[Rfam]
RNA sequence: UAGAAUAAUAUAGAUAAAAAAAGUUAGUAAAAUAGAUCUGUAACUUUAGAAAAAGAAUUAGCUCUAAAAGUUAGGUACGUUAAGCUUUAAAAAAAAGCUUUUAGUAUAAAUUAGUAUUAACUGUAAAGCGGGCGCUUUUUAGCGCUAAGCGGCAGGUAUUUUUAGCAGGCCUUAGCCGUCCGGCGUGCGCUUAAUAACUAACUUAAAAUUAGUAUAGAUAAAAAGAAUCUAACUAUUUAAUUAAAAUAUAGUAUUAUAAUAGCUAGAAAGUAGUGUUAACGUAAUGUAAUUUCUGCCCAGUACUCUAAAUAUUAAAGUAAAAAGAUUUAACUAAGCGCGGGUAAACAGCAGAAGUAACUAUAACUUUUUUAAAGUAGCUAAAUACUUUAUUAUCUAAUUAGUAACGCGCAUAAAUAGAUUAACAAAAUUUCUACUAUUUCUAUUUACUAUUUAGCAAAACUAUAGCUAAGGGAACGGGCUUGGCAAA
Numbered sequence: 001u002a003g004a005a006u007a008a009u010a011u012a013g014a015u016a017a018a019a020a021a022a023g024u025u026a027g028u029a030a031a032a033u034a035g036a037u038c039u040g041u042a043a044c045u046u047u048a049g050a051a052a053a054a055g056a057a058u059u060a061g062c063u064c065u066a067a068a069a070g071u072u073a074g075g076u077a078c079g080u081u082a083a084g085c086u087u088u089a090a091a092a093a094a095a096a097g098c099u100u101u102u103a104g105u106a107u108a109a110a111u112u113a114g115u116a117u118u119a120a121c122u123g124u125a126a127a128g129c130g131g132g133c134g135c136u137u138u139u140u141a142g143c144g145c146u147a148a149g150c151g152g153c154a155g156g157u158a159u160u161u162u163u164a165g166c167a168g169g170c171c172u173u174a175g176c177c178g179u180c181c182g183g184c185g186u187g188c189g190c191u192u193a194a195u196a197a198c199u200a201a202c203u204u205a206a207a208a209u210u211a212g213u214a215u216a217g218a219u220a221a222a223a224a225g226a227a228u229c230u231a232a233c234u235a236u237u238u239a240a241u242u243a244a245a246a247u248a249u250a251g252u253a254u255u256a257u258a259a260u261a262g263c264u265a266g267a268a269a270g271u272a273g274u275g276u277u278a279a280c281g282u283a284a285u286g287u288a289a290u291u292u293c294u295g296c297c298c299a300g301u302a303c304u305c306u307a308a309a310u311a312u313u314a315a316a317g318u319a320a321a322a323a324g325a326u327u328u329a330a331c332u333a334a335g336c337g338c339g340g341g342u343a344a345a346c347a348g349c350a351g352a353a354g355u356a357a358c359u360a361u362a363a364c365u366u367u368u369u370u371a372a373a374g375u376a377g378c379u380a381a382a383u384a385c386u387u388u389a390u391u392a393u394c395u396a397a398u399u400a401g402u403a404a405c406g407c408g409c410a411u412a413a414a415u416a417g418a419u420u421a422a423c424a425a426a427a428u429u430u431c432u433a434c435u436a437u438u439u440c441u442a443u444u445u446a447c448u449a450u451u452u453a454g455c456a457a458a459a460c461u462a463u464a465g466c467u468a469a470g471g472g473a474a475c476g477g478g479c480u481u482g483g484c485a486a487a
Stems, first nucleotide, its partner, number of pairs: 001453004011446006018439003035059003039055001044049001060210002063207001065205003069199005075188007084166003089161003097153003100149006107142001109140002113136003117132002121128002211215001223432001225430004230424001234248003251287007262274004291418002295349002300346002302342004310337001312335001318329004350368006369373001390404004466483005